Phenylalanine leader peptide: a 125-nucleotide sequence from Escherichia coli. The base pairs follow the family's consensus structure, which was predicted with CMfinder. The organism belongs to Escherichia coli, within Bacteria. The family has 71 seed sequences and 379 matches in Rfam 15.1. Rfam classes the family as a cis-regulatory leader. On this family, see Zurawski et al., Proc Natl Acad Sci U S A 1978: "Nucleotide sequence of the leader region of the phenylalanine operon of Escherichia coli".
RNA sequence: CAAGCAAUGAAUGCUGCUAUUUUCCGCUUCUUUUUUUACUUUAGCUCCUGACUCCAGGAGGCUAGCGCGUGAGAAGAGAAACGGAAAACAGCGCCUGAAAGCCUCCCAGUGGAGGCUUUUUUUGU
Numbered sequence: 001c002a003a004g005c006a007a008u009g010a011a012u013g014c015u016g017c018u019a020u021u022u023u024c025c026g027c028u029u030c031u032u033u034u035u036u037u038a039c040u041u042u043a044g045c046u047c048c049u050g051a052c053u054c055c056a057g058g059a060g061g062c063u064a065g066c067g068c069g070u071g072a073g074a075a076g077a078g079a080a081a082c083g084g085a086a087a088a089c090a091g092c093g094c095c096u097g098a099a100a101g102c103c104u105c106c107c108a109g110u111g112g113a114g115g116c117u118u119u120u121u122u123u124g125u
Stems, first nucleotide, its partner, number of pairs: 016092003021087006028080007036072004046059004061066001098119009